[Rfam]
RNA sequence: UACAUUAAAUAUCUCCGAGUCUAUUAUUCCUAAUAAGCAUAUUUCUUAAUGGAGGAUAGACCGAAGGGUAUCAUUGGAAACAAUGGUGCCUCCCAUAGUGGAAAGGAGUUUUAUAGGAAGCAGU
Numbered sequence: 001u002a003c004a005u006u007a008a009a010u011a012u013c014u015c016c017g018a019g020u021c022u023a024u025u026a027u028u029c030c031u032a033a034u035a036a037g038c039a040u041a042u043u044u045c046u047u048a049a050u051g052g053a054g055g056a057u058a059g060a061c062c063g064a065a066g067g068g069u070a071u072c073a074u075u076g077g078a079a080a081c082a083a084u085g086g087u088g089c090c091u092c093c094c095a096u097a098g099u100g101g102a103a104a105g106g107a108g109u110u111u112u113a114u115a116g117g118a119a120g121c122a123g124u
Stems, first nucleotide, its partner, number of pairs: 006115001011110001013108004019061007027054004034048004066091011092101002